About this RNA: A member of the RNA family "Plastid-ccsA-ndhD-2 3UTR RNA" from Olea europaea, 53 nucleotides long. Pairs were carried over by alignment from the consensus structure, which was predicted with LocARNA. It scores 54 bits against the family's covariance model. It is annotated as a cis-regulatory element. Plastid ccsA-ndhD-2 is a non-coding RNA (ncRNA) recognised in plastids. It was found in the three prime untranslated region (3UTR) of ccsA and ndhD genes, its 3UTR location suggests a role in transcript maturation. For this family Rfam cites "Surprising features of plastid ndhD transcripts: addition of non-encoded nucleotides and polysome association of mRNAs with an unedited start codon" (Zandueta-Criado and Bock, Nucleic Acids Res, 2004).

RNA sequence: CUGAUGAGAACCCUGUGAAUCAAAUAUUGUUGUGAUUCACAGGGUUUGCGUUG
Numbered sequence: 001c002u003g004a005u006g007a008g009a010a011c012c013c014u015g016u017g018a019a020u021c022a023a024a025u026a027u028u029g030u031u032g033u034g035a036u037u038c039a040c041a042g043g044g045u046u047u048g049c050g051u052u053g
Base pairs, nucleotide, nucleotide: 004051005050006049008047009046010045011044012043013042014041015040016039017038018037019036020035021034022033